[Rfam]
RNA: SAM/SAH riboswitch aptamer
RNA sequence: GCGCCCCCACAACGGCUUCCUGGCGUGGGUUGGCGUUAACCUUAUCGGAGCG
Numbered sequence: 001g002c003g004c005c006c007c008c009a010c011a012a013c014g015g016c017u018u019c020c021u022g023g024c025g026u027g028g029g030u031u032g033g034c035g036u037u038a039a040c041c042u043u044a045u046c047g048g049a050g051c052g
Stems, first nucleotide, its partner, number of pairs: 004033002006029005013022002015051003019048002